[Rfam]
RNA sequence: UGUCUCCUCCACCCUCCAAAGGUGGAUUCCAACCCUAGGCCUUACCGCCUAGGGUUUUUUUU
Numbered sequence: 001u002g003u004c005u006c007c008u009c010c011a012c013c014c015u016c017c018a019a020a021g022g023u024g025g026a027u028u029c030c031a032a033c034c035c036u037a038g039g040c041c042u043u044a045c046c047g048c049c050u051a052g053g054g055u056u057u058u059u060u061u062u
Base pairs, nucleotide, nucleotide: 008026009025010024011023012022013021032055033054034053035052036051037050038049039048
The family of this 62-nucleotide sequence from Comamonas denitrificans is "Betaproteobacteria toxic small RNA".
The match comes from Rfam's covariance-model search (59 bits).
Overexpression in amino aid rich medium attenuates growth, suggesting role in repressing amino acid intake and metabolism.
The base pairs follow the family's consensus structure, which was predicted with WAR.
On this family, see Sass et al., Sci Rep 2017: "Identification of small RNAs abundant in Burkholderia cenocepacia biofilms reveal putative regulators with a potential role in carbon and iron metabolism".